[Rfam]
RNA sequence: CUUCCUCAGCCUUACUCCUGGGCCUUCUCGCUGUGGAGUGCCCUGGCAUUGCCUGAGGAUAGAUAAGAAAGCCCGUGUCCCUCCCCAGGAAGAACCCACUUUUCUUCUGGGGCCUACACAUUGAGCUAACAGU
Dot-bracket structure: ..(((((((.(.....((.(((.((((.......))))..))).))....).)))))))..........(((.((.......((((((.((((.........)))))))))).........)).)))......
Annotation:
A member of the RNA family "Small nucleolar RNA SNORA49" from Echinops telfairi, 133 nucleotides long. Rfam's curators put it in the seed alignment. The source organism's lineage runs through Eukaryota, Metazoa, Euteleostomi, Mammalia and Echinops. The family's consensus secondary structure was predicted with RNAalifold. The snoRNA ACA49 has no identified RNA target. Its family is annotated with RNA processing and nucleolus in the Gene Ontology.